[Rfam]
RNA: PyrR binding site
RNA sequence: AAAUCCUUUAAAACCUGUCCAGAGAGGCAGACAAGGAGUCGGAUGUUAAGCAGGUUGGUUCUAACUAGCCUAUAUUUUCAUAGUCUCCUUGUAUAAGGAGACUUUUUCUAU
Numbered sequence: 001a002a003a004u005c006c007u008u009u010a011a012a013a014c015c016u017g018u019c020c021a022g023a024g025a026g027g028c029a030g031a032c033a034a035g036g037a038g039u040c041g042g043a044u045g046u047u048a049a050g051c052a053g054g055u056u057g058g059u060u061c062u063a064a065c066u067a068g069c070c071u072a073u074a075u076u077u078u079c080a081u082a083g084u085c086u087c088c089u090u091g092u093a094u095a096a097g098g099a100g101a102c103u104u105u106u107u108c109u110a111u
Stems, first nucleotide, its partner, number of pairs: 004037005015030005048075001050073001052071008080105001082103009